Rfam assigns this 122-nucleotide RNA from Hydrogenophaga sp. IBVHS2 to the family "Burkholderia RNA 11". Rfam links the family to the GO term protein binding. The family's consensus secondary structure was predicted with RNAfold. Co-purified with Hfq, expression confirmed by Northern blot. Predicted target marZ. Overlaps coding sequence. A reference for the family is Ramos et al. (2013), "Experimental identification of small non-coding regulatory RNAs in the opportunistic human pathogen Burkholderia cenocepacia J2315", Genomics. It is annotated as a small RNA. A search with the family's covariance model found it, with a score of 75 bits.

RNA sequence: GCAACCUGCGGCUGGCGCACGGCAACGUGGUGGUGUUCCGCUCGCUGCUGGGCAUCAGCUGGAUGUGGUUCUUCGGCGCGGUGUUCCUCAGCAGCUUCCCCGCCUUUGCGCGCGACGUGCUG
Numbered sequence: 001g002c003a004a005c006c007u008g009c010g011g012c013u014g015g016c017g018c019a020c021g022g023c024a025a026c027g028u029g030g031u032g033g034u035g036u037u038c039c040g041c042u043c044g045c046u047g048c049u050g051g052g053c054a055u056c057a058g059c060u061g062g063a064u065g066u067g068g069u070u071c072u073u074c075g076g077c078g079c080g081g082u083g084u085u086c087c088u089c090a091g092c093a094g095c096u097u098c099c100c101c102g103c104c105u106u107u108g109c110g111c112g113c114g115a116c117g118u119g120c121u122g
Base pairs, nucleotide, nucleotide: 010049011048012047014045017041018040021037022036023035024034026032051121052120053119054118055117060112061111063105065103067099068098071094072093074091076089078088080087081086